[Rfam]
RNA sequence: AUUGGCAGAUGAUGAAGUAAUAUGAGUUUUAUGCUUAACACUCUGAUUAUACUGUGGUGACUACGAACUCCGCUUAUUAUCUGAUGCCAGA
Numbered sequence: 001a002u003u004g005g006c007a008g009a010u011g012a013u014g015a016a017g018u019a020a021u022a023u024g025a026g027u028u029u030u031a032u033g034c035u036u037a038a039c040a041c042u043c044u045g046a047u048u049a050u051a052c053u054g055u056g057g058u059g060a061c062u063a064c065g066a067a068c069u070c071c072g073c074u075u076a077u078u079a080u081c082u083g084a085u086g087c088c089a090g091a
Stems, first nucleotide, its partner, number of pairs: 003089005
Dot-bracket structure: ..(((((.............................................................................)))))..